[Rfam]
A member of the RNA family "U4atac minor spliceosomal RNA" from Aquarana catesbeiana, 127 nucleotides long. Gene Ontology terms of the family: spliceosomal tri-snRNP complex assembly, pre-mRNA 5'-splice site binding and mRNA 5'-splice site recognition. Rfam classes the family as a spliceosomal small nuclear RNA. Rfam's curators write: U4atac is an essential component of the minor U12-type spliceosome complex which is required for removal of the rarer class of eukaryotic introns (AT-AC, U12-type). The source organism's lineage runs through Eukaryota, Vertebrata, Sarcopterygii, Anura and Aquarana.
RNA sequence: ACCAUCCUUCUCUUGGGGUGCGCUACUGACCAAUGAACGGCUAGUGAGGUCAGUACUGCUAACGCCAAUAAACAACACAUAAGUGCCACUAGUGAGCAAUCGCUAGAAAGGUACAAUUUUUGGAACC
Dot-bracket structure: .....((((.....)))).(((..(((((((.....((.....))..)))))))..))).......................(((((..((((((....))))))....))))).............